RNA sequence: GUCGGCGUUGCUGACGAGCGCUGGAAUGUUCUGCCGCUCGCGAUGCCGGUGUAGCUUAAUACUUUUGACCACGGAUGUACUGGCAGGGGUGAAUAGCGAAUGAGGAAGGUCGGUGCGGUUUCGCCCCGGCCUUUUUUGUU
Numbered sequence: 001g002u003c004g005g006c007g008u009u010g011c012u013g014a015c016g017a018g019c020g021c022u023g024g025a026a027u028g029u030u031c032u033g034c035c036g037c038u039c040g041c042g043a044u045g046c047c048g049g050u051g052u053a054g055c056u057u058a059a060u061a062c063u064u065u066u067g068a069c070c071a072c073g074g075a076u077g078u079a080c081u082g083g084c085a086g087g088g089g090u091g092a093a094u095a096g097c098g099a100a101u102g103a104g105g106a107a108g109g110u111c112g113g114u115g116c117g118g119u120u121u122c123g124c125c126c127c128g129g130c131c132u133u134u135u136u137u138g139u140u
Stems, first nucleotide, its partner, number of pairs: 003048007016039005052099001054097003060091004066085002069083003100139014115124003
Shown here is a 140-nucleotide RNA sequence from Neorhizobium alkalisoli, a member of the family "Alphaproteobacterial sRNA ar35". A reference for the family is del Val et al. (2012), "A survey of sRNA families in alpha-proteobacteria", RNA Biol. The base pairs follow the family's consensus structure.